[Rfam]
The family of this 139-nucleotide RNA sequence from Arctia plantaginis is "U4 spliceosomal RNA".

RNA sequence: AACUUUGCGCAGAGGCAAUAUCGUAACCAAUGAGGGUUAUCCGAGGUGCGAUUAUUGCUAUUUGAAAACUUUACCAAUACCCCGCCGUGUGGACGUGAAAUACCGUCCGCGAUGGCAAUUUUUGAAUGGUCGUAAAGAC
Number, nucleotide and partner (000 for none) at each position: 001a000002a000003c000004u000005u000006u000007g000008c000009g000010c000011a000012g000013a000014g000015g000016c000017a000018a000019u000020a052021u051022c050023g049024u048025a000026a047027c046028c045029a000030a000031u000032g000033a000034g042035g041036g040037u000038u000039a000040u036041c035042c034043g000044a000045g028046g027047u026048g024049c023050g022051a021052u020053u000054a000055u000056u000057g000058c000059u000060a000061u000062u000063u000064g000065a000066a000067a000068a000069c000070u000071u000072u000073a000074c000075c000076a000077a000078u000079a000080c000081c000082c000083c000084g116085c115086c114087g000088u111089g110090u109091g108092g107093a106094c105095g104096u000097g000098a000099a000100a000101u000102a000103c000104c095105g094106u093107c092108c091109g090110c089111g088112a000113u000114g086115g085116c084117a000118a000119u000120u000121u000122u000123u000124g000125a000126a000127u000128g000129g139130u138131c137132g000133u000134a000135a000136a000137g131138a130139c129
Rfam 15.1 lists 32,178 matches to the family in 2,547 species. Lineage of the source: Eukaryota > Bilateria > Aparaglossata > Arctiinae > Arctia. U4 small nuclear RNA (U4 snRNA) is a component of the major U2-dependent spliceosome. A search with the family's covariance model found it, with a score of 113 bits. The base pairs follow the family's consensus structure, which is taken from published work.